[Rfam]
RNA sequence: GGUCACGAGUGCCAGCGCAAAGCCCCGGCUUGCUGGUCGGCAACCCUCCCGUCGCGGCGGGGUGCCCCGGGUGACGACCUGGCCGCACCUGCCCGGUGCGGCAAGCGCGGACC
Numbered sequence: 001g002g003u004c005a006c007g008a009g010u011g012c013c014a015g016c017g018c019a020a021a022g023c024c025c026c027g028g029c030u031u032g033c034u035g036g037u038c039g040g041c042a043a044c045c046c047u048c049c050c051g052u053c054g055c056g057g058c059g060g061g062g063u064g065c066c067c068c069g070g071g072u073g074a075c076g077a078c079c080u081g082g083c084c085g086c087a088c089c090u091g092c093c094c095g096g097u098g099c100g101g102c103a104a105g106c107g108c109g110g111a112c113c
Stems, first nucleotide, its partner, number of pairs: 001079004009038001011037006021030002039066003044062003048057002082102008
Shown here is a 113-nucleotide RNA sequence from Arthrobacter mobilis, a member of the family "SAM (S-adenosyl methionine) riboswitch aptamer". The source organism's lineage runs through Bacteria, Bacillati, Micrococcales, Micrococcaceae and Arthrobacter. The base pairs follow the family's consensus structure, which is taken from published work.